[Rfam]
The family of this 81-nucleotide RNA from Vibrio sp. qd031 is "RpsF leader". NCBI's taxonomy places the organism under Bacteria, Pseudomonadati, Pseudomonadota, Vibrionales, Vibrio. Conserved and widely distributed to many bacterial species RNA structure. It precedes operon containing rpsF, which encodes ribosomal protein S6. A search with the family's covariance model found it, with a score of 41 bits. A reference for the family is Babina et al. (2015), "An S6:S18 complex inhibits translation of E. coli rpsF", RNA. Gene Ontology terms of the family: negative regulation of translation and protein binding. It is annotated as a cis-regulatory leader. The base pairs follow the family's consensus structure.
RNA sequence: UCAGUCAAUUCAUUAAGUUCCUUGCUUCCUCAGGACGACUGAGCCUAUCUGGAAGCUACUAAUCCGUAAGGAGCAAACAUG
Numbered sequence: 001u002c003a004g005u006c007a008a009u010u011c012a013u014u015a016a017g018u019u020c021c022u023u024g025c026u027u028c029c030u031c032a033g034g035a036c037g038a039c040u041g042a043g044c045c046u047a048u049c050u051g052g053a054a055g056c057u058a059c060u061a062a063u064c065c066g067u068a069a070g071g072a073g074c075a076a077a078c079a080u081g
Base pairs, nucleotide, nucleotide: 017074018073019072020071021070022069023068024056025055026054027053028052029051033044